[Rfam]
RNA sequence: UUGCGUGUAAAGACCCACCCGAGGCAAUGAUGCCUGCGUAUGUAGGAUGAGGGUAAUAGGGUGGGCAACGCAA
Numbered sequence: 001u002u003g004c005g006u007g008u009a010a011a012g013a014c015c016c017a018c019c020c021g022a023g024g025c026a027a028u029g030a031u032g033c034c035u036g037c038g039u040a041u042g043u044a045g046g047a048u049g050a051g052g053g054u055a056a057u058a059g060g061g062u063g064g065g066c067a068a069c070g071c072a073a
Base pairs, nucleotide, nucleotide: 001073002072003071004070005069006068014065015064016063017062018061019060020059033046034045035044036043037042
The family of this 73-nucleotide RNA is "DUF3800-X RNA".
By type it is a small RNA.
The base pairs follow the family's consensus structure, which is taken from published work.